[Rfam]
RNA sequence: UAUGAUAAAGCCAAACCAAUCGUGAGAUUGGGACGGAAAGUCACGGGUCUUUUCGGUAACGGUUUUUCCCUGCUUCGGUUUUUGAGAUAGCCGGACUGCCAAUA
Numbered sequence: 001u002a003u004g005a006u007a008a009a010g011c012c013a014a015a016c017c018a019a020u021c022g023u024g025a026g027a028u029u030g031g032g033a034c035g036g037a038a039a040g041u042c043a044c045g046g047g048u049c050u051u052u053u054c055g056g057u058a059a060c061g062g063u064u065u066u067u068c069c070c071u072g073c074u075u076c077g078g079u080u081u082u083u084g085a086g087a088u089a090g091c092c093g094g095a096c097u098g099c100c101a102a103u104a
Stems, first nucleotide, its partner, number of pairs: 001104001003101002011036002016031006034090001039097004044093003047088005
Dot-bracket structure: (.((......((...((((((....))))))..[))..((((.((((((((................................))))).])))))))..))..)